RNA sequence: UGGCUGGGAUGACAAAAACAUACGUUUCUCGAUCCUGAUACUUGAUUUGUUCAAAGACCAAACUUUGAUGACCUUUGUGCGUGUCUGAGCCAG
Numbered sequence: 001u002g003g004c005u006g007g008g009a010u011g012a013c014a015a016a017a018a019c020a021u022a023c024g025u026u027u028c029u030c031g032a033u034c035c036u037g038a039u040a041c042u043u044g045a046u047u048u049g050u051u052c053a054a055a056g057a058c059c060a061a062a063c064u065u066u067g068a069u070g071a072c073c074u075u076u077g078u079g080c081g082u083g084u085c086u087g088a089g090c091c092a093g
Stems, first nucleotide, its partner, number of pairs: 001092004
This 93-nucleotide RNA from Panicum miliaceum belongs to the Rfam family "small nucleolar RNA snoR126". The base pairs follow the family's consensus structure, which was predicted with RNAalifold. The literature on the family includes a 2009 paper in Nucleic Acids Res by Chen and Wu, "Mining small RNA sequencing data: a new approach to identify small nucleolar RNAs in Arabidopsis". The organism belongs to Panicum sect. Panicum, within Eukaryota. The family's RNA type in Rfam is C/D-box small nucleolar RNA.